RNA sequence: GUUGCUUCGUUAUGGUGAACUCUCUCAUAUCAAAAUAAGAGAUGUUCAAGUUUCCGGAGCAUAGAUUAAUCGAUUUUGCCAGUAUUAAACAGCACUGUGUUUAAUUUUCAUUGCACUCUGCUACCUGUCUCCUGGUAUAUUU
Numbered sequence: 001g002u003u004g005c006u007u008c009g010u011u012a013u014g015g016u017g018a019a020c021u022c023u024c025u026c027a028u029a030u031c032a033a034a035a036u037a038a039g040a041g042a043u044g045u046u047c048a049a050g051u052u053u054c055c056g057g058a059g060c061a062u063a064g065a066u067u068a069a070u071c072g073a074u075u076u077u078g079c080c081a082g083u084a085u086u087a088a089a090c091a092g093c094a095c096u097g098u099g100u101u102u103a104a105u106u107u108u109c110a111u112u113g114c115a116c117u118c119u120g121c122u123a124c125c126u127g128u129c130u131c132c133u134g135g136u137a138u139a140u141u142u
Stems, first nucleotide, its partner, number of pairs: 003061006016048005021042005078136005084130001091122003097116003
The family of this 142-nucleotide RNA sequence from Acer yangbiense is "small nucleolar RNA snoR137". The family has 4 seed sequences and 808 matches in Rfam 15.1. Pairs were carried over by alignment from the consensus structure, which was predicted with RNAalifold. A reference for the family is Chen and Wu (2009), "Mining small RNA sequencing data: a new approach to identify small nucleolar RNAs in Arabidopsis", Nucleic Acids Res. The source organism's lineage runs through Eukaryota, Streptophytina, rosids, Sapindales and Acer. It scores 127 bits against the family's covariance model. By type it is an H/ACA-box small nucleolar RNA.